[Rfam]
RNA sequence: GGCUGGUCCGAGUGCAGUGGUGUUUACAACUAACUGACCACAACCAGGUAUAGAUUUCUUUGUUCCUUCUCUACUCGCACUGCUUCAUCUGACUAGCCGGGA
Number, nucleotide and partner (000 for none) at each position: 001g098002g097003c096004u095005g094006g093007u092008c091009c000010g090011a000012g000013u000014g086015c000016a081017g080018u079019g078020g000021u000022g076023u000024u000025u000026a000027c000028a064029a063030c062031u000032a060033a059034c000035u000036g000037a000038c000039c000040a000041c000042a000043a000044c000045c000046a000047g000048g000049u000050a000051u000052a000053g000054a000055u000056u000057u000058c000059u033060u032061u000062g030063u029064u028065c000066c000067u000068u000069c000070u000071c000072u000073a000074c000075u000076c022077g000078c019079a018080c017081u016082g000083c000084u000085u000086c014087a000088u000089c000090u010091g008092a007093c006094u005095a004096g003097c002098c001099g000100g000101g000102a000
The record is a 102-nucleotide sequence from Rhinopithecus roxellana, which matches "Y RNA" in Rfam.
The source organism's lineage runs through Eukaryota, Dipnotetrapodomorpha, Theria, Boreoeutheria and Rhinopithecus.
Rfam describes the family as follows. Y RNAs are components of the Ro ribonucleoprotein particle (Ro RNP), in association with Ro60 and La proteins.
It is annotated as a non-coding RNA gene.
A search with the family's covariance model found it, with a score of 58 bits.